[Rfam]
RNA sequence: UUUUUCUAAGGCGAUGGGGUUCGCCAAAACUGCCUUCUGGUCAUUGAGUCUUUUGACUAGAAAGCUGAUGACUCCUACUUUCCU
Dot-bracket structure: .........[[[[..((((((]]]]......((.(((((((((..........))))))))).))....)))))).........
Overview
This 84-nucleotide RNA sequence from Trichocoleus sp. FACHB-832 belongs to the Rfam family "Fluoride riboswitch aptamer (crcB RNA motif)". It scores 49 bits against the family's covariance model. Rfam links the family to the GO terms response to fluoride and positive regulation of gene expression.